[Rfam]
RNA sequence: UUCUUAUCCAGAGAGGUUGAGGGACUGGCCCGUUGACACCUCAGCAACCAGCCGAUUAAUAGGUAUGGUGCUAAUUCCAGCAAGUUGAAUGCCAACUUGAACGAUAAGAG
Numbered sequence: 001u002u003c004u005u006a007u008c009c010a011g012a013g014a015g016g017u018u019g020a021g022g023g024a025c026u027g028g029c030c031c032g033u034u035g036a037c038a039c040c041u042c043a044g045c046a047a048c049c050a051g052c053c054g055a056u057u058a059a060u061a062g063g064u065a066u067g068g069u070g071c072u073a074a075u076u077c078c079a080g081c082a083a084g085u086u087g088a089a090u091g092c093c094a095a096c097u098u099g100a101a102c103g104a105u106a107a108g109a110g
Stems, first nucleotide, its partner, number of pairs: 001110008013042005021031003025080004043072004048068002050064001052062001081099006